[Rfam]
RNA sequence: UUUGAUGGGAAUGUUGCUUGGCACGAUGUCAUCUAGGGUACUCAUUAUUAAGUCUGUUUCAUAAUCAUGCGUACUUUUAUGUCUUUGAAUUCGUAAUGUUUCGUGAUAUAUACAUAGAUAUAUAUUUAUAUAUAUAGAUGCAUACAAUCAAUAUGCAUAUAUAGCCCUAAGUGAUGUCGGACCAGGCUUCAUUCCCCUCAAA
Numbered sequence: 001u002u003u004g005a006u007g008g009g010a011a012u013g014u015u016g017c018u019u020g021g022c023a024c025g026a027u028g029u030c031a032u033c034u035a036g037g038g039u040a041c042u043c044a045u046u047a048u049u050a051a052g053u054c055u056g057u058u059u060c061a062u063a064a065u066c067a068u069g070c071g072u073a074c075u076u077u078u079a080u081g082u083c084u085u086u087g088a089a090u091u092c093g094u095a096a097u098g099u100u101u102c103g104u105g106a107u108a109u110a111u112a113c114a115u116a117g118a119u120a121u122a123u124a125u126u127u128a129u130a131u132a133u134a135u136a137g138a139u140g141c142a143u144a145c146a147a148u149c150a151a152u153a154u155g156c157a158u159a160u161a162u163a164g165c166c167c168u169a170a171g172u173g174a175u176g177u178c179g180g181a182c183c184a185g186g187c188u189u190c191a192u193u194c195c196c197c198u199c200a201a202a
Stems, first nucleotide, its partner, number of pairs: 001202005007196007016187006024179009
Dot-bracket structure: (((((.(((((((..((((((..(((((((((..........................................................................................................................................)))))))))..))))))..))))))).)))))
This 202-nucleotide RNA from Morus notabilis belongs to the Rfam family "mir-166 microRNA precursor family". For this family Rfam cites "MicroRNAs in plants" (Reinhart et al., Genes Dev, 2002). About the family: This family represents the plant microRNA (miRNA) precursor mir-166. Gene Ontology terms of the family: miRNA-mediated post-transcriptional gene silencing and RISC complex. It scores 67 bits against the family's covariance model.